The family of this 116-nucleotide RNA sequence from Aegilops tauschii is "mir-399 microRNA precursor family". Gene Ontology terms of the family: RISC complex and miRNA-mediated post-transcriptional gene silencing.
RNA sequence: AGCUGAAUUGCUGGGCAGGGUCUCCUUUGGCAGAUGUUGGCGCCGUCCGAUACCUGUGUGUGUCAGGGGUUGCCGGUCGGGGAUCUGCCAAAGGAAAUUUGCCCCGGAAUUCAUCU
Numbered sequence: 001a002g003c004u005g006a007a008u009u010g011c012u013g014g015g016c017a018g019g020g021u022c023u024c025c026u027u028u029g030g031c032a033g034a035u036g037u038u039g040g041c042g043c044c045g046u047c048c049g050a051u052a053c054c055u056g057u058g059u060g061u062g063u064c065a066g067g068g069g070u071u072g073c074c075g076g077u078c079g080g081g082g083a084u085c086u087g088c089c090a091a092a093g094g095a096a097a098u099u100u101g102c103c104c105c106g107g108a109a110u111u112c113a114u115c116u
Base pairs, nucleotide, nucleotide: 005112006111007110008109009108011106013104014103015102016101017100018099019098023095024094025093028090029089030088031087032086033085034084035083
Dot-bracket structure: ....(((((.(.(((((((...(((..((((((((...............................................))))))))..)))..))))))).).)))))....
It scores 65 bits against the family's covariance model. The literature on the family includes a 2004 paper in Mol Cell by Jones-Rhoades and Bartel, "Computational Identification of Plant MicroRNAs and Their Targets, Including a Stress-Induced miRNA". mir-399 was identified in both Arabidopsis thaliana and Oryza sativa computationally and was later experimentally verified. mir-399 is thought to target mRNAs coding for a phosphatase transporter. The mature sequence is excised from the 3' arm of the hairpin.